This 76-nucleotide RNA from Cyclopterus lumpus belongs to the Rfam family "mir-19 microRNA precursor family".
RNA sequence: CAGUUCUGCUAGUUUUGCAUAGUUGCACUACAAGAAUAGACAGGUUGUGCAAAUCUAUGCAAAACUUAUGGUGGCC
Dot-bracket structure: ...(.(((..(((((((((...((((((.((............)).)))))).....)))))))))..))).)...
Notes:
A reference for the family is Houbaviy et al. (2003), "Embryonic stem cell-specific MicroRNAs", Dev Cell. Its Rfam clan is "mir-19 clan". Rfam 15.1 lists 2,337 matches to the family in 651 species. Lineage of the source: Eukaryota > Chordata > Osteoglossocephalai > Cyclopterinae > Cyclopterus.